[Rfam]
RNA sequence: AGAAAGAGCAAAGCGCCAGGGCUCCCGGAGAGGUCAGAGACCUUUCGGGGAGUCGACGAGGAAGACGUUUAUCGAGUUUUUCGGCGGAUGCGUCUCGGCCUCCGGGCGGUCGAUAGGGCGGCGUUAAAUCCCGGCGGUGACGCCGGGGACAGAGCGCCGAUCCGGGCCCGGUA
Number, nucleotide and partner (000 for none) at each position: 001a000002g000003a000004a000005a000006g000007a000008g000009c000010a000011a000012a000013g000014c000015g000016c000017c000018a000019g000020g054021g053022c052023u051024c050025c049026c048027g000028g000029a045030g044031a043032g042033g000034u000035c000036a000037g000038a000039g000040a000041c000042c032043u031044u030045u029046c000047g000048g026049g025050g024051a023052g022053u021054c020055g000056a000057c000058g000059a000060g000061g000062a000063a095064g094065a093066c092067g091068u000069u000070u000071a000072u084073c083074g082075a081076g000077u000078u000079u000080u000081u075082c074083g073084g072085c000086g000087g000088a000089u000090g000091c067092g066093u065094c064095u063096c112097g111098g110099c109100c108101u000102c000103c000104g000105g000106g000107c000108g100109g099110u098111c097112g096113a000114u000115a000116g000117g163118g161119c159120g158121g157122c156123g000124u000125u000126a000127a000128a000129u000130c147131c146132c145133g144134g143135c142136g141137g000138u000139g000140a000141c136142g135143c134144c133145g132146g131147g130148g000149a000150c000151a000152g000153a000154g000155c000156g122157c121158c120159g119160a000161u118162c000163c117164g000165g000166g000167c000168c000169c000170g000171g000172u000173a000

The record is a 173-nucleotide RNA sequence from Rubrobacter marinus, which matches "glmS glucosamine-6-phosphate activated ribozyme aptamer" in Rfam.
Its family is annotated with catalytic activity and regulation of gene expression in the Gene Ontology.
The source organism's lineage runs through Bacteria, Actinomycetota, Rubrobacteria, Rubrobacteraceae and Rubrobacter.